[Rfam]
RNA sequence: CGAACCGCGGCGGGAGAGUCCGGCCCCGCGCCGUCGUCGUCCAGACGCCGCGCGAACCGGCGCCGAAGGAGCAAUUUCCUCCCCGGGAAUCUCUCAGGCCCCCGUACCGCCGCGGUGAG
Numbered sequence: 001c002g003a004a005c006c007g008c009g010g011c012g013g014g015a016g017a018g019u020c021c022g023g024c025c026c027c028g029c030g031c032c033g034u035c036g037u038c039g040u041c042c043a044g045a046c047g048c049c050g051c052g053c054g055a056a057c058c059g060g061c062g063c064c065g066a067a068g069g070a071g072c073a074a075u076u077u078c079c080u081c082c083c084c085g086g087g088a089a090u091c092u093c094u095c096a097g098g099c100c101c102c103c104g105u106a107c108c109g110c111c112g113c114g115g116u117g118a119g
Stems, first nucleotide, its partner, number of pairs: 006114008020060004062099003065095002069093003075086002

A member of the RNA family "Glycine riboswitch aptamer" from Promicromonospora sukumoe, 119 nucleotides long. Lineage of the source: Bacteria > Actinomycetota > Actinomycetes > Promicromonosporaceae > Promicromonospora. It scores 60 bits against the family's covariance model. Rfam describes the family as follows. This family represents the bacterial glycine riboswitch.